[Rfam]
RNA sequence: GGCCUGUGAUGAACUGCUUAGACUUCUGACACCUCGUCUGAACGCUGCACGCGCAGCCUGAUGACGUAGCAGUACUGAGGCCG
Numbered sequence: 001g002g003c004c005u006g007u008g009a010u011g012a013a014c015u016g017c018u019u020a021g022a023c024u025u026c027u028g029a030c031a032c033c034u035c036g037u038c039u040g041a042a043c044g045c046u047g048c049a050c051g052c053g054c055a056g057c058c059u060g061a062u063g064a065c066g067u068a069g070c071a072g073u074a075c076u077g078a079g080g081c082c083g
Stems, first nucleotide, its partner, number of pairs: 001082004044057005

This 83-nucleotide sequence from Dipodomys ordii belongs to the Rfam family "Small nucleolar RNA SNORD60". Pairs were carried over by alignment from the consensus structure, which was predicted with PFOLD. Rfam links the family to the GO terms nucleolus and RNA processing. It is annotated as a C/D-box small nucleolar RNA. The family has 22 seed sequences and 825 matches in Rfam 15.1. It scores 84 bits against the family's covariance model.